Background:
Bacillus sRNA ncr1575: a 187-nucleotide sequence from Kurthia sp. 11kri321. It is annotated as a small RNA. Lineage of the source: Bacteria > Bacillota > Bacilli > Caryophanales > Kurthia. Pairs were carried over by alignment from the consensus structure, which is taken from published work. For this family Rfam cites "Identification of regulatory RNAs in Bacillus subtilis" (Irnov et al., Nucleic Acids Res, 2010). A search with the family's covariance model found it, with a score of 102 bits.
[Rfam]
RNA sequence: GAUUCUUGAACGAAAGGAAUGAGGAUGGCCGAUGAAGUAAUCUUAUUUUUUACACGCGAAGUGAAAGAAACUUUGUAUAAAAAAUAGGAUUAGUCUGUCCACAUUCCAUUUAUUUUAUAAAAAUAACCCGUUUUUUCGGUAUGUUUUUUAGACUAAUCCUUCCAAAAAUUUUUGGAGGGAUUUUUUA
Numbered sequence: 001g002a003u004u005c006u007u008g009a010a011c012g013a014a015a016g017g018a019a020u021g022a023g024g025a026u027g028g029c030c031g032a033u034g035a036a037g038u039a040a041u042c043u044u045a046u047u048u049u050u051u052a053c054a055c056g057c058g059a060a061g062u063g064a065a066a067g068a069a070a071c072u073u074u075g076u077a078u079a080a081a082a083a084a085u086a087g088g089a090u091u092a093g094u095c096u097g098u099c100c101a102c103a104u105u106c107c108a109u110u111u112a113u114u115u116u117a118u119a120a121a122a123a124u125a126a127c128c129c130g131u132u133u134u135u136u137c138g139g140u141a142u143g144u145u146u147u148u149u150a151g152a153c154u155a156a157u158c159c160u161u162c163c164a165a166a167a168a169u170u171u172u173u174g175g176a177g178g179g180a181u182u183u184u185u186u187a
Base pairs, nucleotide, nucleotide: 016107017106018105019104023100024099025098028095030093038092039091040090041089042088043087044086045085046084047083048082049081050080057075058074059073060072061071062070117133155182156181157180158179159178160177161176162175163174164173165172